[Rfam]
RNA sequence: GUUCCUGUGGCGCAGUGGCUUUAGCGCGUGACUCUUAUAAGCCAUCCUUUUAUGGAUUUCUUAUGGUUAGCAAUGUCAAGGUCGAGGGUUCGAAUCCCCCCAGGAACA
Dot-bracket structure: (((((((..((((..........)))).((((..........................................)))).....(.(((.......))).)))))))).
Numbered sequence: 001g002u003u004c005c006u007g008u009g010g011c012g013c014a015g016u017g018g019c020u021u022u023a024g025c026g027c028g029u030g031a032c033u034c035u036u037a038u039a040a041g042c043c044a045u046c047c048u049u050u051u052a053u054g055g056a057u058u059u060c061u062u063a064u065g066g067u068u069a070g071c072a073a074u075g076u077c078a079a080g081g082u083c084g085a086g087g088g089u090u091c092g093a094a095u096c097c098c099c100c101c102a103g104g105a106a107c108a
Stems, first nucleotide, its partner, number of pairs: 001107007010027004029078004084100001086098003

This 108-nucleotide sequence from Purpureocillium takamizusanense belongs to the Rfam family "tRNA". Clan: tRNA clan. Rfam classes the family as a transfer RNA. NCBI's taxonomy places the organism under Eukaryota, Pezizomycotina, leotiomyceta, Hypocreales, Purpureocillium. The family's consensus secondary structure is taken from published work.